[Rfam]
RNA sequence: UCGUAACUUGUGUGGCUUCGAAUGUACCUCGUCGAGCGAAAAGCGAAUUCAUUGUUGGAUUUUGUUGCUCUUGGUAUUCGAGCCAAUAAGUUCGG
Numbered sequence: 001u002c003g004u005a006a007c008u009u010g011u012g013u014g015g016c017u018u019c020g021a022a023u024g025u026a027c028c029u030c031g032u033c034g035a036g037c038g039a040a041a042a043g044c045g046a047a048u049u050c051a052u053u054g055u056u057g058g059a060u061u062u063u064g065u066u067g068c069u070c071u072u073g074g075u076a077u078u079c080g081a082g083c084c085a086a087u088a089a090g091u092u093c094g095g
Stems, first nucleotide, its partner, number of pairs: 002094002005092007013085005019080003024077005031069001033067003042063002045060001048059003
A member of the RNA family "mir-314 microRNA precursor family" from Drosophila mojavensis, 95 nucleotides long.
A reference for the family is Clark et al. (2007), "Evolution of genes and genomes on the Drosophila phylogeny", Nature.
Rfam's curators put it in the seed alignment.
Lineage of the source: Eukaryota > Eumetazoa > Protostomia > Endopterygota > mojavensis species complex.